RNA: Actinobacteria sRNA Ms_IGR-5
RNA sequence: ACACGCGAAAGGAGGUGAUCCGGAAAAAUGAUUUCUUUUCGGACUCGUGAGGUGACUGCGGGCUAAGGCCUGCCGUCGCACGAUGUGCACCUCGGCAGGCCCUCUGCCGAAACCCCAGCAGUCACCCGACCCGUGGGCCGCCGGUCAGUCCGGCCGGCUCCCGUCCGAACCUAGGCGGACGGGACCGAGGCCCACGGGUCGUUCGCG
Numbered sequence: 001a002c003a004c005g006c007g008a009a010a011g012g013a014g015g016u017g018a019u020c021c022g023g024a025a026a027a028a029u030g031a032u033u034u035c036u037u038u039u040c041g042g043a044c045u046c047g048u049g050a051g052g053u054g055a056c057u058g059c060g061g062g063c064u065a066a067g068g069c070c071u072g073c074c075g076u077c078g079c080a081c082g083a084u085g086u087g088c089a090c091c092u093c094g095g096c097a098g099g100c101c102c103u104c105u106g107c108c109g110a111a112a113c114c115c116c117a118g119c120a121g122u123c124a125c126c127c128g129a130c131c132c133g134u135g136g137g138c139c140g141c142c143g144g145u146c147a148g149u150c151c152g153g154c155c156g157g158c159u160c161c162c163g164u165c166c167g168a169a170c171c172u173a174g175g176c177g178g179a180c181g182g183g184a185c186c187g188a189g190g191c192c193c194a195c196g197g198g199u200c201g202u203u204c205g206c207g
Stems, first nucleotide, its partner, number of pairs: 015059003019055001061108003066103002068100004073095003127201013140158006